RNA sequence: CGCGGUCCUCGACAGUGGCUUCCGGAACUCCGCGCCGCGCCGACCCUCGAGUCGGUCCGGCCCGAGGUCCGGGGGCUUCGAUCGAAGACCGGG
Dot-bracket structure: (.(((((.((((....((((((((((.((...................................)).))))))))))....)))).))))).)